[Rfam]
RNA sequence: UAGAAAUGAUGAAUAGACUCUCUGAGAAAUCGUGAGGAUAUUUAUUGAAGAUAGUCAAGUACUGAUCUAG
Numbered sequence: 001u002a003g004a005a006a007u008g009a010u011g012a013a014u015a016g017a018c019u020c021u022c023u024g025a026g027a028a029a030u031c032g033u034g035a036g037g038a039u040a041u042u043u044a045u046u047g048a049a050g051a052u053a054g055u056c057a058a059g060u061a062c063u064g065a066u067c068u069a070g
Stems, first nucleotide, its partner, number of pairs: 001069004
RNA: Small nucleolar RNA SNORD20